[Rfam]
RNA sequence: AAUAUAAGGAGCAAUAAACUCUUUCUUGUUCUAUCAAGAGGGCUUAUUGCUCCUUUAUUUUCU
Numbered sequence: 001a002a003u004a005u006a007a008g009g010a011g012c013a014a015u016a017a018a019c020u021c022u023u024u025c026u027u028g029u030u031c032u033a034u035c036a037a038g039a040g041g042g043c044u045u046a047u048u049g050c051u052c053c054u055u056u057a058u059u060u061u062c063u
Stems, first nucleotide, its partner, number of pairs: 006055012019042003024039005
Rfam assigns this 63-nucleotide RNA from Buddleja colvilei to the family "Plastid-psbA-2 3UTR RNA".
About the family: Plastid psbA-2 is a non-coding RNA (ncRNA) present in plastids. It was identified in inverted repeat sequences in the 3 prime untranslate region (3UTR) of photosystem II quinone-binding protein (psbA).
Clan: Plastid-psbA 3UTR RNA clan.
The organism belongs to Buddleja, within Eukaryota.